[Rfam]
RNA sequence: CGAUACAAGUGUCAAAAGUAUAAAAACUCGAUUGGGGCUUGCUUGCAAAAAAAUUUAUUAUCUUUUGACACGCAAAAAAAUAUGAAUAAGCAGCUAUUUUUACAAAAAUUAGCGGAUUAUGAAUAUUUUUGCAAGAAUUACGAUUGACGAAACCGGAGAAAUCCUGUAUCA
Numbered sequence: 001c002g003a004u005a006c007a008a009g010u011g012u013c014a015a016a017a018g019u020a021u022a023a024a025a026a027c028u029c030g031a032u033u034g035g036g037g038c039u040u041g042c043u044u045g046c047a048a049a050a051a052a053a054u055u056u057a058u059u060a061u062c063u064u065u066u067g068a069c070a071c072g073c074a075a076a077a078a079a080a081u082a083u084g085a086a087u088a089a090g091c092a093g094c095u096a097u098u099u100u101u102a103c104a105a106a107a108a109u110u111a112g113c114g115g116a117u118u119a120u121g122a123a124u125a126u127u128u129u130u131g132c133a134a135g136a137a138u139u140a141c142g143a144u145u146g147a148c149g150a151a152a153c154c155g156g157a158g159a160a161a162u163c164c165u166g167u168a169u170c171a
Base pairs, nucleotide, nucleotide: 002170003169004168005167006166007165010070011069012068013067017064018063020061021060022059023058025056026055028053032049033047034046035044036043037042076130077129078128079127080126081125082124083123086120087119088118089117093113094112095111096110098108099107135164137162138161139160141158146154149153

A member of the RNA family "Clostridiales-1 RNA" from Catonella morbi, 171 nucleotides long. The match comes from Rfam's covariance-model search (61 bits).